[Rfam]
This 449-nucleotide part of an RNA from Pedosphaera parvula belongs to the Rfam family "Bacterial large subunit ribosomal RNA".
RNA sequence: CUCUCCGAAAUAGCUUGAGGGCUAGCGUUGGAUAAGUACUCCAUGGAGGUAGAGCACUGGAUGGCUUAGGAACCCCACCAGGUUACCAAAACCAAUCAAACUCCGAAUACCAUGGAUCCCAGUAUUCCAGCAGUCAGGCCGCGAGGGAUAAGCUUCGUGGCCGAGAGGGCAACAGCCCAGAUCGCCAGCUAAGGUGCCUAAAUAUAGUUAAGUGGAAAGGAUGUGACGUUGCAUAGACAGUGAGGAUGUUGGCUUAGAGGCAGCCAUCAUUUAAACAGUGCGUAAUAGCUGACUCAUCGAGCGAUGUCGCGCCGAAAAUGAUUGGCGAUUAAACUAUAUACCGAAGCUGCGGAUUCCAGAGAGUUUCGACUUUCUGGAGUGGUAGGAGAGCGUAAUGCAUGCCGUGAAGCCUUACUGUAAAGGACGGUGGAGCGUGCGUUAGUGAGAAU
Numbered sequence: 001c002u003c004u005c006c007g008a009a010a011u012a013g014c015u016u017g018a019g020g021g022c023u024a025g026c027g028u029u030g031g032a033u034a035a036g037u038a039c040u041c042c043a044u045g046g047a048g049g050u051a052g053a054g055c056a057c058u059g060g061a062u063g064g065c066u067u068a069g070g071a072a073c074c075c076c077a078c079c080a081g082g083u084u085a086c087c088a089a090a091a092c093c094a095a096u097c098a099a100a101c102u103c104c105g106a107a108u109a110c111c112a113u114g115g116a117u118c119c120c121a122g123u124a125u126u127c128c129a130g131c132a133g134u135c136a137g138g139c140c141g142c143g144a145g146g147g148a149u150a151a152g153c154u155u156c157g158u159g160g161c162c163g164a165g166a167g168g169g170c171a172a173c174a175g176c177c178c179a180g181a182u183c184g185c186c187a188g189c190u191a192a193g194g195u196g197c198c199u200a201a202a203u204a205u206a207g208u209u210a211a212g213u214g215g216a217a218a219g220g221a222u223g224u225g226a227c228g229u230u231g232c233a234u235a236g237a238c239a240g241u242g243a244g245g246a247u248g249u250u251g252g253c254u255u256a257g258a259g260g261c262a263g264c265c266a267u268c269a270u271u272u273a274a275a276c277a278g279u280g281c282g283u284a285a286u287a288g289c290u291g292a293c294u295c296a297u298c299g300a301g302c303g304a305u306g307u308c309g310c311g312c313c314g315a316a317a318a319u320g321a322u323u324g325g326c327g328a329u330u331a332a333a334c335u336a337u338a339u340a341c342c343g344a345a346g347c348u349g350c351g352g353a354u355u356c357c358a359g360a361g362a363g364u365u366u367c368g369a370c371u372u373u374c375u376g377g378a379g380u381g382g383u384a385g386g387a388g389a390g391c392g393u394a395a396u397g398c399a400u401g402c403c404g405u406g407a408a409g410c411c412u413u414a415c416u417g418u419a420a421a422g423g424a425c426g427g428u429g430g431a432g433c434g435u436g437c438g439u440u441a442g443u444g445a446g447a448a449u
Base pairs, nucleotide, nucleotide: 001390002389003388004387005386006385011024012023013022014021015020026133027131028130029129030128031127032126037124040116041115042114043113044112045111046110052104053102054101058098059097060096062094063093064092069087070086071084072083073082074081137162138161139160140159141158142157143156144155145154146153167178168177169176182352183351184350185349187348188347189346193342194341195340202339203338204337205336206335207334208333219313220312223310224309225308226307227306228305229304230303231302232301240297241296242295243294244293246270247269248268251265252264253263271275276291280289281288353380354379355378356377357376358375359374360373361372362371363370391444393441394440395439396438397437398436399435400434401433402432409428410427411426413424415422416421
Taxonomically the source falls in Pedosphaera parvula (Bacteria, Pseudomonadati, Pedosphaerales, Pedosphaera). Its family is annotated with ribosome and structural constituent of ribosome in the Gene Ontology.